[Rfam]
RNA: Ribosomal protein L10 leader
RNA sequence: AAAUAAAUAUUGUUUGUACCGUAGACAGUAGGUGCCCUUAAAGGCUUAAUUUCCUACCGAGGUGUAAUUUGAACGUAAAACUUUCUCGUUUUAACGAUUAAAUUCAUACCUCCAUGUCUGAUGGAGGUAUUUUUUAUGUACACCA
Numbered sequence: 001a002a003a004u005a006a007a008u009a010u011u012g013u014u015u016g017u018a019c020c021g022u023a024g025a026c027a028g029u030a031g032g033u034g035c036c037c038u039u040a041a042a043g044g045c046u047u048a049a050u051u052u053c054c055u056a057c058c059g060a061g062g063u064g065u066a067a068u069u070u071g072a073a074c075g076u077a078a079a080a081c082u083u084u085c086u087c088g089u090u091u092u093a094a095c096g097a098u099u100a101a102a103u104u105c106a107u108a109c110c111u112c113c114a115u116g117u118c119u120g121a122u123g124g125a126g127g128u129a130u131u132u133u134u135u136a137u138g139u140a141c142a143c144c145a
Stems, first nucleotide, its partner, number of pairs: 028057005034045003106130010